[Rfam]
RNA sequence: ACGCUAGUCGCAGUAUCCCUUUGGUCCUACUCCCCAAGAGGCCAAAUCCCCAGGGAGUUCAUGCUGUUGAGGCUCUGAGCAAGCCUACUACUGGCGUUGUUCUGCCCCGGACGUCUUGUACGUCCGGGGUUUUUCUGU
Number, nucleotide and partner (000 for none) at each position: 001a097002c096003g095004c094005u093006a092007g091008u090009c000010g067011c066012a065013g064014u063015a062016u061017c000018c000019c000020u046021u045022u044023g043024g042025u041026c040027c038028u037029a000030c000031u000032c000033c000034c000035c000036a000037a028038g027039a000040g026041g025042c024043c023044a022045a021046a020047u056048c055049c054050c000051c000052a000053g000054g049055g048056a047057g000058u000059u000060c000061a016062u015063g014064c013065u012066g011067u010068u000069g000070a086071g085072g084073c083074u082075c000076u000077g000078a000079g000080c000081a000082a074083g073084c072085c071086u070087a000088c000089u000090a008091c007092u006093g005094g004095c003096g002097u001098u000099g000100u000101u000102c000103u000104g130105c129106c128107c127108c126109g125110g124111a123112c122113g121114u120115c000116u000117u000118g000119u000120a114121c113122g112123u111124c110125c109126g108127g107128g106129g105130u104131u000132u000133u000134u000135c000136u000137g000138u000